This 168-nucleotide RNA from Anaerocolumna cellulosilytica belongs to the Rfam family "glmS glucosamine-6-phosphate activated ribozyme aptamer". The match comes from Rfam's covariance-model search (59 bits). Rfam describes the family as follows. This entry contains a glucosamine-6-phosphate activated ribozyme that is found in the mRNA for GlmS. GlmS is an enzyme that uses fructose-6-phosphate and glutamine to generate glucosamine-6-phosphate. The ribozyme catalyses self cleavage of the glmS mRNA that is thought to regulate GlmS activity. Rfam links the family to the GO terms regulation of gene expression and catalytic activity. The literature on the family includes a 2006 paper in Nat Struct Mol Biol by Jansen et al., "Backbone and nucleobase contacts to glucosamine-6-phosphate in the glmS ribozyme". The organism belongs to Anaerocolumna, within Bacteria.
RNA sequence: AUGUUUAAAUUAGCGCCAUGUACCUCUAUUGGGUCAAAUGAAGUUUAGAGGUUAACGAGGUAGGGAGUCAGCGAACUAUUCGGCGGAUGCUCUCUCGCAUACUUGGAUGUGUUAUAUGUCGAAAAAACUUCGGGUAACCGGAGCACAACAGCGUCAUAACCAAGAGCA
Numbered sequence: 001a002u003g004u005u006u007a008a009a010u011u012a013g014c015g016c017c018a019u020g021u022a023c024c025u026c027u028a029u030u031g032g033g034u035c036a037a038a039u040g041a042a043g044u045u046u047a048g049a050g051g052u053u054a055a056c057g058a059g060g061u062a063g064g065g066a067g068u069c070a071g072c073g074a075a076c077u078a079u080u081c082g083g084c085g086g087a088u089g090c091u092c093u094c095u096c097g098c099a100u101a102c103u104u105g106g107a108u109g110u111g112u113u114a115u116a117u118g119u120c121g122a123a124a125a126a127a128c129u130u131c132g133g134g135u136a137a138c139c140g141g142a143g144c145a146c147a148a149c150a151g152c153g154u155c156a157u158a159a160c161c162a163a164g165a166g167c168a
Base pairs, nucleotide, nucleotide: 022052023051024050025049026048027047028046062095063094064093065092066091072082073081074080096111097110098109099108100107115158116157117156118155120153121152128143129142130141131140132139133138